[Rfam]
Rfam assigns this 84-nucleotide sequence from Flavipsychrobacter stenotrophus to the family "tRNA". The family's RNA type in Rfam is transfer RNA. The family's consensus secondary structure is taken from published work.
RNA sequence: GCCCAGAUGGCGGAAUUGGUAGACGCGCUAGACUCAAAAUCUGGUUAUCGCAAGGUAGUGCAGGUUCGAUUCCUGUUCUGGGCA
Numbered sequence: 001g002c003c004c005a006g007a008u009g010g011c012g013g014a015a016u017u018g019g020u021a022g023a024c025g026c027g028c029u030a031g032a033c034u035c036a037a038a039a040u041c042u043g044g045u046u047a048u049c050g051c052a053a054g055g056u057a058g059u060g061c062a063g064g065u066u067c068g069a070u071u072c073c074u075g076u077u078c079u080g081g082g083c084a
Base pairs, nucleotide, nucleotide: 001083002082003081004080005079006078007077010026011025012024028044029043030042031041032040060076061075062074063073064072